[Rfam]
Description:
This 92-nucleotide sequence from Ideonella dechloratans belongs to the Rfam family "Glycine riboswitch aptamer". Pairs were carried over by alignment from the consensus structure. A search with the family's covariance model found it, with a score of 62 bits. Taxonomically the source falls in Ideonella (Bacteria, Pseudomonadati, Burkholderiales, Sphaerotilaceae).
RNA sequence: GAAUGGAUGUCAGGAGAGAGCCCCACCCGGGGCCGCCGAAGGCGCAGAGGCUCACCCCUCGAACGCUCAGGCAAAAGGACUGGCAGCCGUGU
Numbered sequence: 001g002a003a004u005g006g007a008u009g010u011c012a013g014g015a016g017a018g019a020g021c022c023c024c025a026c027c028c029g030g031g032g033c034c035g036c037c038g039a040a041g042g043c044g045c046a047g048a049g050g051c052u053c054a055c056c057c058c059u060c061g062a063a064c065g066c067u068c069a070g071g072c073a074a075a076a077g078g079a080c081u082g083g084c085a086g087c088c089g090u091g092u
Stems, first nucleotide, its partner, number of pairs: 006087001008085006020033004035072003038068002042066003048059002